Early nodulin 40: a 189-nucleotide sequence from Lactuca sativa. A reference for the family is Gultyaev and Roussis (2007), "Identification of conserved secondary structures and expansion segments in enod40 RNAs reveals new enod40 homologues in plants", Nucleic Acids Res.

RNA sequence: UUGGAAUGUGCAUUGGGGGCAAAUAGGAGUGCAAGAAGAUAAGAUGAUAGCUAGAUGAUCUUUGUUAUGUCUUUUCUUCUCCUCCAUAUUUCAAAUAGUUUGAUUAUGGCAUUAACCAUUUUAUCAGAUGGAUAAUGCCAAAACAAACCGGCAAGUCACAAAACGGCAAAGGAGACUCGUUUGAGUCUU
Number, nucleotide and partner (000 for none) at each position: 001u000002u000003g000004g000005a000006a000007u000008g000009u000010g000011c000012a000013u000014u000015g000016g000017g000018g000019g000020c000021a000022a000023a000024u000025a000026g000027g000028a000029g000030u000031g084032c000033a000034a000035g000036a000037a000038g000039a000040u000041a000042a000043g000044a000045u000046g000047a000048u000049a000050g000051c000052u000053a000054g000055a000056u000057g000058a000059u000060c000061u000062u000063u000064g000065u000066u000067a000068u000069g000070u000071c000072u000073u000074u000075u000076c000077u000078u000079c000080u000081c000082c000083u000084c031085c000086a000087u000088a000089u000090u000091u000092c000093a000094a000095a000096u000097a000098g148099u147100u146101u145102g144103a000104u000105u000106a000107u000108g000109g000110c000111a000112u000113u000114a000115a000116c000117c137118a136119u135120u000121u000122u000123a000124u000125c000126a000127g000128a000129u000130g000131g000132a000133u000134a000135a119136u118137g117138c000139c000140a000141a000142a000143a000144c102145a101146a100147a099148c098149c000150g000151g000152c000153a000154a000155g000156u000157c000158a000159c000160a000161a000162a000163a000164c000165g000166g000167c000168a000169a000170a000171g000172g000173a000174g187175a186176c185177u184178c183179g000180u000181u000182u000183g178184a177185g176186u175187c174188u000189u000

Gene Ontology term of the family: nodulation. Taxonomically the source falls in Lactuca (Eukaryota, Streptophytina, asterids, campanulids). The family's consensus secondary structure is taken from published work. The family has 35 seed sequences and 341 matches in Rfam 15.1.